[Rfam]
RNA: Mammalian CPEB3 ribozyme
Organism: Crocodylus porosus
RNA sequence: AGGGGUCUCACGUUGGAGGCCGUAGCAGAAGUGCUUCUGGUGCAGCCCUGUCGGAUUGCGGCGAAUCUGUGAAUUCUGCU
Numbered sequence: 001a002g003g004g005g006u007c008u009c010a011c012g013u014u015g016g017a018g019g020c021c022g023u024a025g026c027a028g029a030a031g032u033g034c035u036u037c038u039g040g041u042g043c044a045g046c047c048c049u050g051u052c053g054g055a056u057u058g059c060g061g062c063g064a065a066u067c068u069g070u071g072a073a074u075u076c077u078g079c080u
Stems, first nucleotide, its partner, number of pairs: 016048001018047003024080007031043003052069006